[Rfam]
RNA sequence: CGGUCCGCACUGGAAGGUGCGGGCUGACCGGGCAGAAGUCAGCAGAGGUCGUAGUACCAGCCGGGGUGGCCGUGAGUGCGGCGGGCUGGGAAGGGC
Numbered sequence: 001c002g003g004u005c006c007g008c009a010c011u012g013g014a015a016g017g018u019g020c021g022g023g024c025u026g027a028c029c030g031g032g033c034a035g036a037a038g039u040c041a042g043c044a045g046a047g048g049u050c051g052u053a054g055u056a057c058c059a060g061c062c063g064g065g066g067u068g069g070c071c072g073u074g075a076g077u078g079c080g081g082c083g084g085g086c087u088g089g090g091a092a093g094g095g096c
Stems, first nucleotide, its partner, number of pairs: 001026002004023008039046002048096003057089006
RNA: Group II catalytic intron D1-D4-1